[Rfam]
RNA sequence: AAACAUAUAAAACUCCGAGUUGAUCUGCCUAAAGUUUACGCCACGGCAAAUUAACCGAUAGGGUAAAUCCGGAAACGGUUUUGCCUCCCUUGCUUGGAAAGGAGUUUGGGUCGAAUAAAG
Numbered sequence: 001a002a003a004c005a006u007a008u009a010a011a012a013c014u015c016c017g018a019g020u021u022g023a024u025c026u027g028c029c030u031a032a033a034g035u036u037u038a039c040g041c042c043a044c045g046g047c048a049a050a051u052u053a054a055c056c057g058a059u060a061g062g063g064u065a066a067a068u069c070c071g072g073a074a075a076c077g078g079u080u081u082u083g084c085c086u087c088c089c090u091u092g093c094u095u096g097g098a099a100a101g102g103a104g105u106u107u108g109g110g111u112c113g114a115a116u117a118a119a120g
Base pairs, nucleotide, nucleotide: 004113011106012105013104014103015102016101019055020054021053022052023051024050026048027047028046029045034041035040061086062085063084064083065082066081067080069078070077071076087097088096
The record is a 120-nucleotide sequence from Syntrophomonas zehnderi, which matches "Molybdenum/Tungsten riboswitch aptamer (Moco RNA motif)" in Rfam. Lineage of the source: Bacteria > Bacillota > Syntrophomonadaceae > Syntrophomonas > Syntrophomonas zehnderi. Pairs were carried over by alignment from the consensus structure, which is taken from published work. A search with the family's covariance model found it, with a score of 82 bits.